Rfam assigns this 262-nucleotide part of an RNA from Tupaia belangeri to the family "Eukaryotic small subunit ribosomal RNA".
Lineage of the source: Eukaryota > Bilateria > Theria > Eutheria > Tupaia belangeri.
The family is grouped with related families in Rfam's "SSU clan".
The match comes from Rfam's covariance-model search (1326 bits).

RNA sequence: AAACCUCACCCAGCCCGGACAUAGACAGGAUUGACAGAUUGAUAGCUCUUUCCCGAUUCUGUGGGUGGUGGUGCAUGGCCGUUCUUAGUUGAUGGAGUGAUUUGUCUAGUUAAUUCCGAUAAUGAACGAGACUCUAGCAUGCUAACUAGUUACGCGACCCCCGAGCAGUCGGUGUCCCCCAACUUCUUAGAGGGACAAGUUGCAUUCAGUCACCCGAGAUUGAACAAUAACAGGUCUGUGAUGCCCUCAGAUGUCUGGGGCU
Numbered sequence: 001a002a003a004c005c006u007c008a009c010c011c012a013g014c015c016c017g018g019a020c021a022u023a024g025a026c027a028g029g030a031u032u033g034a035c036a037g038a039u040u041g042a043u044a045g046c047u048c049u050u051u052c053c054c055g056a057u058u059c060u061g062u063g064g065g066u067g068g069u070g071g072u073g074c075a076u077g078g079c080c081g082u083u084c085u086u087a088g089u090u091g092a093u094g095g096a097g098u099g100a101u102u103u104g105u106c107u108a109g110u111u112a113a114u115u116c117c118g119a120u121a122a123u124g125a126a127c128g129a130g131a132c133u134c135u136a137g138c139a140u141g142c143u144a145a146c147u148a149g150u151u152a153c154g155c156g157a158c159c160c161c162c163g164a165g166c167a168g169u170c171g172g173u174g175u176c177c178c179c180c181a182a183c184u185u186c187u188u189a190g191a192g193g194g195a196c197a198a199g200u201u202g203c204a205u206u207c208a209g210u211c212a213c214c215c216g217a218g219a220u221u222g223a224a225c226a227a228u229a230a231c232a233g234g235u236c237u238g239u240g241a242u243g244c245c246c247u248c249a250g251a252u253g254u255c256u257g258g259g260g261c262u
Base pairs, nucleotide, nucleotide: 009259010258011257012256013255015253020063021062022061023060024059033052034051036049037048038047067247068246070245071244072243073242076241077239078235079234080233081231082230083229088127089126090125092123093122094103095102096101107118109116133223134222136220138193140191142190143189144188145187148184149183150182151181196216199213200212202210203209